[Rfam]
RNA: Plant signal recognition particle RNA
Organism: Arabis alpina
RNA sequence: GUCGAGCUAAAUAAACGAUAGCUUGUAACCCAUGUGGGAACAGUAAAGAUGGUGGAACAGUUGGCUCGGUCCCCACGGAUCGGGAUCCGAUGAUGACGGUUCGGACUGCCCGGUCCAAGCUUAUGAGUGAGCCGUGUGAGCUAAGAUGGAGGAGGAUAAUGCGUAAAGGCUGGUUUCACAGAUCAGCGACUACCUCCCGCUCAUAGCAGUGGACGGACGACGGUUCGGCGCUUCUCAGAUCCCACUAUGGUCCGAUGGUUCGUACUCAGUUGAACCACCAUUUUU
Numbered sequence: 001g002u003c004g005a006g007c008u009a010a011a012u013a014a015a016c017g018a019u020a021g022c023u024u025g026u027a028a029c030c031c032a033u034g035u036g037g038g039a040a041c042a043g044u045a046a047a048g049a050u051g052g053u054g055g056a057a058c059a060g061u062u063g064g065c066u067c068g069g070u071c072c073c074c075a076c077g078g079a080u081c082g083g084g085a086u087c088c089g090a091u092g093a094u095g096a097c098g099g100u101u102c103g104g105a106c107u108g109c110c111c112g113g114u115c116c117a118a119g120c121u122u123a124u125g126a127g128u129g130a131g132c133c134g135u136g137u138g139a140g141c142u143a144a145g146a147u148g149g150a151g152g153a154g155g156a157u158a159a160u161g162c163g164u165a166a167a168g169g170c171u172g173g174u175u176u177c178a179c180a181g182a183u184c185a186g187c188g189a190c191u192a193c194c195u196c197c198c199g200c201u202c203a204u205a206g207c208a209g210u211g212g213a214c215g216g217a218c219g220a221c222g223g224u225u226c227g228g229c230g231c232u233u234c235u236c237a238g239a240u241c242c243c244a245c246u247a248u249g250g251u252c253c254g255a256u257g258g259u260u261c262g263u264a265c266u267c268a269g270u271u272g273a274a275c276c277a278c279c280a281u282u283u284u285u
Stems, first nucleotide, its partner, number of pairs: 001041002004024006029038003045285011058272002061269003064265001067262003072258002076254006082243006089236002092234002095231001097230002101228008110216002113214005119207003124203005130142002151197005162188003170181003